Background:
S10-Clostridia ribosomal protein leader: a 101-nucleotide sequence from Vagococcus teuberi. Taxonomically the source falls in Vagococcus (Bacteria, Bacillota, Lactobacillales, Enterococcaceae). It scores 38 bits against the family's covariance model. The family's RNA type in Rfam is cis-regulatory leader. On this family, see Eckert and Weinberg, BMC Microbiol 2020: "Discovery of 20 novel ribosomal leader candidates in bacteria and archaea".
RNA sequence: CGAAGGCGUUGAAUCGAGAGGUUGCGACACGCCAGGGAGCAUUGCCAUGGUGGCGUGUUGGAUAUUUUCGAGGAGCUAUGUCUACUUUUUAAAAUAGGCGA
Numbered sequence: 001c002g003a004a005g006g007c008g009u010u011g012a013a014u015c016g017a018g019a020g021g022u023u024g025c026g027a028c029a030c031g032c033c034a035g036g037g038a039g040c041a042u043u044g045c046c047a048u049g050g051u052g053g054c055g056u057g058u059u060g061g062a063u064a065u066u067u068u069c070g071a072g073g074a075g076c077u078a079u080g081u082c083u084a085c086u087u088u089u090u091a092a093a094a095u096a097g098g099c100g101a
Base pairs, nucleotide, nucleotide: 014071015070016069018068019067020066021065025060026059027058028057029056030055031054032053033052034051081101082100086098087097088096